This 224-nucleotide RNA from Triticum turgidum belongs to the Rfam family "Plant small nucleolar RNA U3".
Gene Ontology terms of the family: RNA processing and nucleolus.
The family is grouped with related families in Rfam's "U3 clan".
The match comes from Rfam's covariance-model search (156 bits).
Rfam describes the family as follows. Small nucleolar RNAs (snoRNAs) are involved in the processing and modification of rRNA in the nucleolus. There are two main classes of snoRNAs: the box C/D class, and the box H/ACA class. U3 snoRNA is a member of the box C/D class. Indeed, the box C/D element is a subset of the six short sequence elements found in all U3 snoRNAs, namely boxes A, A', B, C, C', and D. The U3 snoRNA secondary structure is characterised by a small 5' domain (with boxes A and A'), and a larger 3' domain (with boxes B, C, C', and D), the two domains being linked by a single-stranded hinge. Boxes B and C form the B/C motif, which appears to be exclusive to U3 snoRNAs, and boxes C' and D form the C'/D motif. The latter is functionally similar to the C/D motifs found in other snoRNAs. The 5' domain and the hinge region act as a pre-rRNA-binding domain. The 3' domain has conserved protein-binding sites. Both the box B/C and box C'/D motifs are sufficient for nuclear retention of U3 snoRNA. The box C'/D motif is also necessary for nucleolar localisation, stability and hyper-methylation of U3 snoRNA. Both box B/C and C'/D motifs are involved in specific protein interactions and are necessary for the rRNA processing functions of U3 snoRNA.
[Rfam]
RNA sequence: ACGACCUUACUUGAACGGGAUCUGUUCUAUAGGCUCGUACCGCCUGCAUCCUUUACCAAUAAGGAGGCAAGCACUCAUGUCUGGUUGAUGCAUUCUAACCUCUAGGCCAGAGCGUGAUUAACGGCUAUGAUUCUCCUGAUCGGUGUUAUCUGAUGGCUGUAGAGGAUCGUUCCUGGAUUGGCUUAUGUCUCUACAGGAUGGCCUAGAGUUUGUCCUGACAGACA
Numbered sequence: 001a002c003g004a005c006c007u008u009a010c011u012u013g014a015a016c017g018g019g020a021u022c023u024g025u026u027c028u029a030u031a032g033g034c035u036c037g038u039a040c041c042g043c044c045u046g047c048a049u050c051c052u053u054u055a056c057c058a059a060u061a062a063g064g065a066g067g068c069a070a071g072c073a074c075u076c077a078u079g080u081c082u083g084g085u086u087g088a089u090g091c092a093u094u095c096u097a098a099c100c101u102c103u104a105g106g107c108c109a110g111a112g113c114g115u116g117a118u119u120a121a122c123g124g125c126u127a128u129g130a131u132u133c134u135c136c137u138g139a140u141c142g143g144u145g146u147u148a149u150c151u152g153a154u155g156g157c158u159g160u161a162g163a164g165g166a167u168c169g170u171u172c173c174u175g176g177a178u179u180g181g182c183u184u185a186u187g188u189c190u191c192u193a194c195a196g197g198a199u200g201g202c203c204u205a206g207a208g209u210u211u212g213u214c215c216u217g218a219c220a221g222a223c224a
Base pairs, nucleotide, nucleotide: 001038002037003035005033006032007031013027014026015025016024017023018022045069046068047067049065050064051063052062053061079223080222081221082220083219098210100208101207102206103205104204105203106202107201108200109199111171112170113169114168121160122159123158124157125156126155127154128153129150130149131148134145136143137142173196174195175194177192180189181188182187